RNA sequence: GCCGGCGCCCGUUCGGGGUCGGCAAGGUCAAGGAGCGCCGCAUCCUUGGCGCUCCUCGUACCCAUGUUGCUCAGUUAUGGAGGAUGUGGCUAUGAGAA
Numbered sequence: 001g002c003c004g005g006c007g008c009c010c011g012u013u014c015g016g017g018g019u020c021g022g023c024a025a026g027g028u029c030a031a032g033g034a035g036c037g038c039c040g041c042a043u044c045c046u047u048g049g050c051g052c053u054c055c056u057c058g059u060a061c062c063c064a065u066g067u068u069g070c071u072c073a074g075u076u077a078u079g080g081a082g083g084a085u086g087u088g089g090c091u092a093u094g095a096g097a098a
Stems, first nucleotide, its partner, number of pairs: 001023006008017002032054001034053007055096006062089007070082003

The family of this 98-nucleotide RNA sequence from Mesorhizobium sp. Root157 is "Repression of heat shock gene expression (ROSE) element". This family represents a 5' UTR cis-regulatory element found in heat shock mRNAs and is known as the ROSE (repression of heat shock gene expression) element. The ROSE element is a negative regulator of heat shock gene expression. NCBI's taxonomy places the organism under Bacteria, Pseudomonadati, Alphaproteobacteria, Phyllobacteriaceae, Mesorhizobium. A reference for the family is Nocker et al. (2001), "A mRNA-based thermosensor controls expression of rhizobial heat shock genes", Nucleic Acids Res. The base pairs follow the family's consensus structure, which is taken from published work.